[Rfam]
RNA sequence: AAUAAGAGAAUGAUAAAUUAGAUUUUUCGUUCUAAUUUUUAGUAUUUUCCUCCUAAAAAAUUCAAUUCCAACUAAAAAUGCUAAAAAUCAGAAGAAAAAAGUUGAUUUGUCAUUCUCCUGUU
Numbered sequence: 001a002a003u004a005a006g007a008g009a010a011u012g013a014u015a016a017a018u019u020a021g022a023u024u025u026u027u028c029g030u031u032c033u034a035a036u037u038u039u040u041a042g043u044a045u046u047u048u049c050c051u052c053c054u055a056a057a058a059a060a061u062u063c064a065a066u067u068c069c070a071a072c073u074a075a076a077a078a079u080g081c082u083a084a085a086a087a088u089c090a091g092a093a094g095a096a097a098a099a100a101g102u103u104g105a106u107u108u109g110u111c112a113u114u115c116u117c118c119u120g121u122u
Base pairs, nucleotide, nucleotide: 001122002121003120004119006117007116008115009114010113011112012111013110014109015108016107017106018105019104020103021102023100024099025098026097027096030093031092032091033090035088036087037086038085039084041082042081045078046077047076048075
MIR7504 microRNA precursor family: a 122-nucleotide sequence from Gossypium barbadense. Rfam 15.1 lists 7,343 matches to the family in 61 species. Pairs were carried over by alignment from the consensus structure, which was predicted with RNAalifold.